[Rfam]
RNA sequence: AACCGCCGAGAACCAUGUGAAUCAAGUAGUGUGGGGAUUCACACGGUUCUCACAA
Numbered sequence: 001a002a003c004c005g006c007c008g009a010g011a012a013c014c015a016u017g018u019g020a021a022u023c024a025a026g027u028a029g030u031g032u033g034g035g036g037a038u039u040c041a042c043a044c045g046g047u048u049c050u051c052a053c054a055a
Stems, first nucleotide, its partner, number of pairs: 008051007016043008

This 55-nucleotide RNA sequence from Aralia undulata belongs to the Rfam family "Plastid-ccsA-ndhD-1 3UTR RNA". Rfam classes the family as a cis-regulatory element. Rfam describes the family as follows. Plastid-ccsA-ndhD-1 is a non-coding RNA (ncRNA) recognised in plastids. It was found in the three prime untranslated region (3UTR) of ccsA and ndhD genes, its 3UTR location suggests a role in transcript maturation. Pairs were carried over by alignment from the consensus structure, which was predicted with LocARNA. Rfam's curators put it in the seed alignment. NCBI's taxonomy places the organism under Eukaryota, Viridiplantae, Streptophyta, Gunneridae, Aralia.